[Rfam]
RNA sequence: GGUAUGCGUUUAAGGUGCGCUGGCAAAGCGCCGAGCGAACGCAGUCUUGGCUGUCGAAGCGGAUGAUACUGACCAUCCCAUCCUCGGUGAAGCGUUGCAGCGCAUCUUCGAGGCCGGAUUUCACUCCGCGAGGCAAAUCACAUUGGGUAAUGUCGCCGUUAACCACCACGGUGACGUUUUCCCCCAGACGGGUG
Numbered sequence: 001g002g003u004a005u006g007c008g009u010u011u012a013a014g015g016u017g018c019g020c021u022g023g024c025a026a027a028g029c030g031c032c033g034a035g036c037g038a039a040c041g042c043a044g045u046c047u048u049g050g051c052u053g054u055c056g057a058a059g060c061g062g063a064u065g066a067u068a069c070u071g072a073c074c075a076u077c078c079c080a081u082c083c084u085c086g087g088u089g090a091a092g093c094g095u096u097g098c099a100g101c102g103c104a105u106c107u108u109c110g111a112g113g114c115c116g117g118a119u120u121u122c123a124c125u126c127c128g129c130g131a132g133g134c135a136a137a138u139c140a141c142a143u144u145g146g147g148u149a150a151u152g153u154c155g156c157c158g159u160u161a162a163c164c165a166c167c168a169c170g171g172u173g174a175c176g177u178u179u180u181c182c183c184c185c186a187g188a189c190g191g192g193u194g
Stems, first nucleotide, its partner, number of pairs: 002054003007049002015040002018037002061078005067072001083112005093102003113193003117189001119188003126133002138165001144158003171183001173181002
Dot-bracket structure: .(((..((......((.((................)).)).......))..)))......(((((.(....).)))))....(((((.....(((....))).....)))))(((.(.(((....((....))....(.....(((.........)))......).....(.((.....)).)..)))).))).
Description: Yersinia sRNA 251: a 194-nucleotide RNA from Hafnia alvei. The organism belongs to Hafnia alvei, within Bacteria.